[Rfam]
RNA sequence: CUUUGUAUUCUUCCACAGCUUUCUUGAACUGCAGCUACGAGCUAGGCUCAGACUUUGCAUGCGUUAAGAGACUUAUUAUUUUUUCUCUUAUUUUGUUUUUCUUGGUUGCGGUUCAAUAAAGCUGUGGGAAGAUACAGACA
Numbered sequence: 001c002u003u004u005g006u007a008u009u010c011u012u013c014c015a016c017a018g019c020u021u022u023c024u025u026g027a028a029c030u031g032c033a034g035c036u037a038c039g040a041g042c043u044a045g046g047c048u049c050a051g052a053c054u055u056u057g058c059a060u061g062c063g064u065u066a067a068g069a070g071a072c073u074u075a076u077u078a079u080u081u082u083u084u085c086u087c088u089u090a091u092u093u094u095g096u097u098u099u100u101c102u103u104g105g106u107u108g109c110g111g112u113u114c115a116a117u118a119a120a121g122c123u124g125u126g127g128g129a130a131g132a133u134a135c136a137g138a139c140a
Stems, first nucleotide, its partner, number of pairs: 003137005013127003017123006024116004029111009
Source information: Shown here is a 140-nucleotide RNA from Quercus lobata, a member of the family "MIR396 microRNA precursor family". Taxonomically the source falls in Quercus (Eukaryota, Streptophyta, Tracheophyta, Gunneridae).